Notes
Rfam assigns this 174-nucleotide sequence from Aidingimonas halophila to the family "Group II catalytic intron D1-D4-3". Rfam 15.1 lists 4,274 matches to the family in 1,585 species. Pairs were carried over by alignment from the consensus structure.
RNA sequence: GUCAUCGCGAGGUGGCGUUUGGGGGAAGCCCAAUCCGAAGCCGGGGGCGACGAACAGGAACCCGAUACGAGGUGUGGUACGCCCGGGGCGAGCUGGCACGUGACAGCGAAGCCCUCCAUCUGCGAACGGGGUGUGCUUUAUAAAUCGGGCGUCUACGCGGUGACAGUUCUGUGU
Numbered sequence: 001g002u003c004a005u006c007g008c009g010a011g012g013u014g015g016c017g018u019u020u021g022g023g024g025g026a027a028g029c030c031c032a033a034u035c036c037g038a039a040g041c042c043g044g045g046g047g048c049g050a051c052g053a054a055c056a057g058g059a060a061c062c063c064g065a066u067a068c069g070a071g072g073u074g075u076g077g078u079a080c081g082c083c084c085g086g087g088g089c090g091a092g093c094u095g096g097c098a099c100g101u102g103a104c105a106g107c108g109a110a111g112c113c114c115u116c117c118a119u120c121u122g123c124g125a126a127c128g129g130g131g132u133g134u135g136c137u138u139u140a141u142a143a144a145u146c147g148g149g150c151g152u153c154u155a156c157g158c159g160g161u162g163a164c165a166g167u168u169c170u171g172u173g174u
Base pairs, nucleotide, nucleotide: 001016002015003014004013005012006011028174029173031171032170036166040161041160042159043158044156045154046153047152048151049150061149062148063147064146065145066144072141073140074139076137077136078135079134080133081132082131086114087113088112089111092107093106094105095104
Taxonomically the source falls in Aidingimonas (Bacteria, Pseudomonadati, Pseudomonadota, Gammaproteobacteria).